RNA sequence: CCGCAUACUGUAACUAAAGACUGAAAGCGUGGGUGACAAGCGCAUCGGCUUGUUUAAGGUCAAGGAUUUGCGGUUAUAUACGAU
Numbered sequence: 001c002c003g004c005a006u007a008c009u010g011u012a013a014c015u016a017a018a019g020a021c022u023g024a025a026a027g028c029g030u031g032g033g034u035g036a037c038a039a040g041c042g043c044a045u046c047g048g049c050u051u052g053u054u055u056a057a058g059g060u061c062a063a064g065g066a067u068u069u070g071c072g073g074u075u076a077u078a079u080a081c082g083a084u
Stems, first nucleotide, its partner, number of pairs: 035054007
The family of this 84-nucleotide RNA is "RAGATH-26 RNA".
The base pairs follow the family's consensus structure, which is taken from published work.
The sequence is in the family's curated seed alignment.